[Rfam]
RNA sequence: CAAUCGGCCCUUUUCAGGGCCACCAUUUAUUUAAAGAAAGAGAAUU
Numbered sequence: 001c002a003a004u005c006g007g008c009c010c011u012u013u014u015c016a017g018g019g020c021c022a023c024c025a026u027u028u029a030u031u032u033a034a035a036g037a038a039a040g041a042g043a044a045u046u
Base pairs, nucleotide, nucleotide: 006021007020008019009018010017011016
RNA: Histone 3' UTR stem-loop
Organism: Daphnia galeata